This 76-nucleotide sequence belongs to the Rfam family "c-di-GMP-I-GGC riboswitch aptamer". Pairs were carried over by alignment from the consensus structure, which is taken from published work. Rfam's curators put it in the seed alignment.
RNA sequence: AAUAUUCUCGGCAAAACAGUCGAAAGGCUGUGACGCGAAGCUACAGGGCCUGUAAAAUGGCAGCCAGCUGCUUCUC
Numbered sequence: 001a002a003u004a005u006u007c008u009c010g011g012c013a014a015a016a017c018a019g020u021c022g023a024a025a026g027g028c029u030g031u032g033a034c035g036c037g038a039a040g041c042u043a044c045a046g047g048g049c050c051u052g053u054a055a056a057a058u059g060g061c062a063g064c065c066a067g068c069u070g071c072u073u074c075u076c
Base pairs, nucleotide, nucleotide: 004072011036012035016031017030018029019028020027021026034063039069040068041067042066046065047064048061049060050059